This 45-nucleotide sequence from a BD1-7 clade bacterium belongs to the Rfam family "Guanidine-II riboswitch aptamer (mini-ykkC)". Lineage of the source: Bacteria > Pseudomonadati > Gammaproteobacteria > Cellvibrionales > Spongiibacteraceae. The family's consensus secondary structure is taken from published work.
RNA sequence: CCAUGAGGACGACCUCUUGGCUGCCAACCAUUCGGGGACGACCCC
Numbered sequence: 001c002c003a004u005g006a007g008g009a010c011g012a013c014c015u016c017u018u019g020g021c022u023g024c025c026a027a028c029c030a031u032u033c034g035g036g037g038a039c040g041a042c043c044c045c
Stems, first nucleotide, its partner, number of pairs: 001020003005016004034045004